RNA sequence: UGCCGAAGAAAACCUCGGGAGUUAACUGCCGAGGAAUUUCCUCGGCAGUUAACUACCGAGGUUUUC
Numbered sequence: 001u002g003c004c005g006a007a008g009a010a011a012a013c014c015u016c017g018g019g020a021g022u023u024a025a026c027u028g029c030c031g032a033g034g035a036a037u038u039u040c041c042u043c044g045g046c047a048g049u050u051a052a053c054u055a056c057c058g059a060g061g062u063u064u065u066c
Stems, first nucleotide, its partner, number of pairs: 012062002015059004020054010
The family of this 66-nucleotide RNA sequence from Medicago truncatula is "MIR2629 microRNA precursor family". The match comes from Rfam's covariance-model search (60 bits). Pairs were carried over by alignment from the consensus structure, which was predicted with RNAalifold.